[Rfam]
Background: The record is an 84-nucleotide RNA from Medicago truncatula, which matches "MIR2617 microRNA precursor family" in Rfam. Gene Ontology terms of the family: RISC complex and miRNA-mediated post-transcriptional gene silencing. Rfam 15.1 lists 1,174 matches to the family in 2 species.
RNA sequence: AAGUGUGACAUGCCCGUUUGGGUUAUUACUCUGAUGAAUUAUUUAUUAAUUAAUUGCUUUGGGAUAACGGGGUGUUACAACAUU
Numbered sequence: 001a002a003g004u005g006u007g008a009c010a011u012g013c014c015c016g017u018u019u020g021g022g023u024u025a026u027u028a029c030u031c032u033g034a035u036g037a038a039u040u041a042u043u044u045a046u047u048a049a050u051u052a053a054u055u056g057c058u059u060u061g062g063g064a065u066a067a068c069g070g071g072g073u074g075u076u077a078c079a080a081c082a083u084u
Base pairs, nucleotide, nucleotide: 002084003083004079005078006077007076008075009074010073011072013071014070015069016068017067018066